[Rfam]
RNA sequence: GCAGGCUCACUCUGUGCCCAACUGCAACUUCCAGUUAGGGUGCUUUUUAAGUCUGCUAAAGAAUUUCCAACAUCUUCAGAGCCUCUUCUUGGUUUUGUAGAAAACUGUCUUGAAGAUCAUGGGACAUGAUU
Numbered sequence: 001g002c003a004g005g006c007u008c009a010c011u012c013u014g015u016g017c018c019c020a021a022c023u024g025c026a027a028c029u030u031c032c033a034g035u036u037a038g039g040g041u042g043c044u045u046u047u048u049a050a051g052u053c054u055g056c057u058a059a060a061g062a063a064u065u066u067c068c069a070a071c072a073u074c075u076u077c078a079g080a081g082c083c084u085c086u087u088c089u090u091g092g093u094u095u096u097g098u099a100g101a102a103a104a105c106u107g108u109c110u111u112g113a114a115g116a117u118c119a120u121g122g123g124a125c126a127u128g129a130u131u
Stems, first nucleotide, its partner, number of pairs: 001056006014043006022034003067122003072117006080110002083107001
Rfam assigns this 131-nucleotide sequence from Hymenochirus boettgeri to the family "Small nucleolar RNA SNORA77".
Rfam classes the family as an H/ACA-box small nucleolar RNA.
Rfam 15.1 lists 843 matches to the family in 607 species.
About the family: ACA63 (SNORA77) is a member of the H/ACA class of snoRNAs that guide the sites of modification of uridines to pseudouridines. This snoRNA was identified by computational screening and its expression in mouse experimentally verified by Northern blot and primer extension analysis. ACA63 is proposed to guide the pseudouridylation of 18S rRNA U814.
The base pairs follow the family's consensus structure, which was predicted with RNAalifold.
The match comes from Rfam's covariance-model search (48 bits).
The source organism's lineage runs through Eukaryota, Eumetazoa, Teleostomi, Pipinae and Hymenochirus.